[Rfam]
About this RNA
A member of the RNA family "Small nucleolar RNA SNORA33" from Phyllostomus discolor, 130 nucleotides long. The family's consensus secondary structure was predicted with PFOLD. The organism belongs to Phyllostomus, within Eukaryota. A search with the family's covariance model found it, with a score of 115 bits. By type it is an H/ACA-box small nucleolar RNA. About the family: ACA33 is a member of the H/ACA class of snoRNA that guide the sites of modification of uridines to pseudouridines.

RNA sequence: AAGCCAGCCAAUGAGUCUGCUUACUUGAAUGUGUUUCUGCAUACAUUUAGAGAAAGCUGGCGAUAAUAAAGCCACGUUUCGAGCCUUAAAAACAUUAAAGUCGUGGAGGUCCCUGACAAUGGCUAUGAGG
Numbered sequence: 001a002a003g004c005c006a007g008c009c010a011a012u013g014a015g016u017c018u019g020c021u022u023a024c025u026u027g028a029a030u031g032u033g034u035u036u037c038u039g040c041a042u043a044c045a046u047u048u049a050g051a052g053a054a055a056g057c058u059g060g061c062g063a064u065a066a067u068a069a070a071g072c073c074a075c076g077u078u079u080c081g082a083g084c085c086u087u088a089a090a091a092a093c094a095u096u097a098a099a100g101u102c103g104u105g106g107a108g109g110u111c112c113c114u115g116a117c118a119a120u121g122g123c124u125a126u127g128a129g130g
Stems, first nucleotide, its partner, number of pairs: 003061005016043001018041003071123004083110005089104001092101002